[Rfam]
RNA sequence: UAUGGGUGGGCAUUUUACAGCGCUUUUUUGAGAAAGCGCUGUAAUAUGCUCACCCAUAUAUGAAAUUAUGGGUGGGCAUUUUACAGCGCUUUCUCAAAAAAGCGCUGUAAUAUGCCCACCCAUAUAUGA
Number, nucleotide and partner (000 for none) at each position: 001u000002a000003u056004g055005g054006g053007u052008g051009g000010g000011c000012a000013u000014u000015u000016u000017a000018c041019a040020g039021c038022g037023c036024u035025u034026u033027u000028u000029u000030g000031a000032g000033a026034a025035a024036g023037c022038g021039c020040u019041g018042u000043a000044a000045u000046a000047u000048g000049c000050u000051c008052a007053c006054c005055c004056a003057u000058a000059u000060a000061u000062g000063a000064a000065a000066u000067u000068a123069u122070g121071g120072g119073u118074g117075g116076g115077c114078a113079u000080u000081u000082u000083a000084c107085a106086g105087c104088g103089c102090u101091u100092u099093c000094u000095c000096a000097a000098a000099a092100a091101a090102g089103c088104g087105c086106u085107g084108u000109a000110a000111u000112a000113u078114g077115c076116c075117c074118a073119c072120c071121c070122a069123u068124a000125u000126a000127u000128g000129a000

A member of the RNA family "Small nucleolar RNA SNORA69" from Cicer arietinum, 129 nucleotides long. U69 is a member of the H/ACA class of small nucleolar RNAs (snoRNAs) which act as guides in the the modification of uridines to pseudouridines.